[Rfam]
RNA sequence: GAUCGCAGCGAUGACUUGGUUGAAUCCAAGCUCAAUAGACCAGAAUGCAGGAUUUUCUCUCGCUCUUCUUGCGAUAAAAUUUUGCGGGUCGACCACCUCGCUUACCUGAGCGAUC
Numbered sequence: 001g002a003u004c005g006c007a008g009c010g011a012u013g014a015c016u017u018g019g020u021u022g023a024a025u026c027c028a029a030g031c032u033c034a035a036u037a038g039a040c041c042a043g044a045a046u047g048c049a050g051g052a053u054u055u056u057c058u059c060u061c062g063c064u065c066u067u068c069u070u071g072c073g074a075u076a077a078a079a080u081u082u083u084g085c086g087g088g089u090c091g092a093c094c095a096c097c098u099c100g101c102u103u104a105c106c107u108g109a110g111c112g113a114u115c
Stems, first nucleotide, its partner, number of pairs: 001115006
Shown here is a 115-nucleotide RNA sequence from Carpinus fangiana, a member of the family "Small nucleolar RNA Z107/R87". The match comes from Rfam's covariance-model search (85 bits). By type it is a C/D-box small nucleolar RNA. The source organism's lineage runs through Eukaryota, Embryophyta, Magnoliopsida, Mesangiospermae and Carpinus. The family has 9 seed sequences and 783 matches in Rfam 15.1. The literature on the family includes a 2001 paper in J Mol Biol by Barneche et al., "Identification of 66 box C/D snoRNAs in Arabidopsis thaliana: extensive gene duplications generated multiple isoforms predicting new ribosomal RNA 2'-O-methylation sites".